mir-3473 microRNA precursor family: a 79-nucleotide RNA from Nannospalax galili. The match comes from Rfam's covariance-model search (73 bits).
RNA sequence: UCCGCUGAGCCAUCUUUCCAGCCCUGACAAUGUCAUUUCUUAAAUGCUAUCCUCUGGGCUGGAGAGAUGGCUCAGCGGA
Dot-bracket structure: .(((((((((((((((((((((((...............................))))))))))))))))))))))).